[Rfam]
RNA sequence: UUUGUGAUUUAGGUAGUUUCAUGUUGUUGGGAUUGGCAAUUUACCUCGGCAACGAGAAACUGCCUUAAUUACGUC
Numbered sequence: 001u002u003u004g005u006g007a008u009u010u011a012g013g014u015a016g017u018u019u020c021a022u023g024u025u026g027u028u029g030g031g032a033u034u035g036g037c038a039a040u041u042u043a044c045c046u047c048g049g050c051a052a053c054g055a056g057a058a059a060c061u062g063c064c065u066u067a068a069u070u071a072c073g074u075c
Stems, first nucleotide, its partner, number of pairs: 003073007011065009022054010
Background
Shown here is a 75-nucleotide RNA sequence from Polypterus senegalus, a member of the family "mir-196 microRNA precursor family". The family has 84 seed sequences and 1,813 matches in Rfam 15.1. Gene Ontology terms of the family: gene silencing by miRNA and RISC complex. A reference for the family is Lim et al. (2003), "Vertebrate microRNA genes", Science.